Rfam assigns this 96-nucleotide sequence from Arachis hypogaea to the family "Plastid-psbM 3UTR RNA". Rfam describes the family as follows. Plastid psbM is a non-coding RNA (ncRNA) recognised in plastids. On this family, see Richter et al., Plant Commun 2023: "Retrograde signaling in plants: A critical review focusing on the GUN pathway and beyond". NCBI's taxonomy places the organism under Eukaryota, Viridiplantae, Gunneridae, Fabales, Arachis. It scores 53 bits against the family's covariance model. The family's RNA type in Rfam is cis-regulatory element. The family has 237 seed sequences and 627 matches in Rfam 15.1.
RNA sequence: GGAUAGAUAAUAUGGUAGAAAGAAAUCAAAUUGAUUUCUUUCUACCAUAUUAUCUAUAUUAUCUAUUCUAUAAUUGUAGUGCAAAAACUUUUACUC
Numbered sequence: 001g002g003a004u005a006g007a008u009a010a011u012a013u014g015g016u017a018g019a020a021a022g023a024a025a026u027c028a029a030a031u032u033g034a035u036u037u038c039u040u041u042c043u044a045c046c047a048u049a050u051u052a053u054c055u056a057u058a059u060u061a062u063c064u065a066u067u068c069u070a071u072a073a074u075u076g077u078a079g080u081g082c083a084a085a086a087a088c089u090u091u092u093a094c095u096c
Base pairs, nucleotide, nucleotide: 006054007053008052009051010050011049012048013047014046015045016044017043018042019041020040021039022038023037024036025035026034027033